Small nucleolar RNA Z152/R70/R12/: a 107-nucleotide RNA sequence from Lupinus angustifolius. Pairs were carried over by alignment from the consensus structure, which was predicted with PFOLD. By type it is a C/D-box small nucleolar RNA.
RNA sequence: AGUGCAGUGAUGUGACUAAAACACAUUUGUGUUAUUGGGCAGUGGACGUUGCCACAAGGUAACGCCGUGAGCUUAUAAUUAAACGACUUCUCCUUCCACUGAGCACU
Dot-bracket structure: (((((.................................................................................................)))))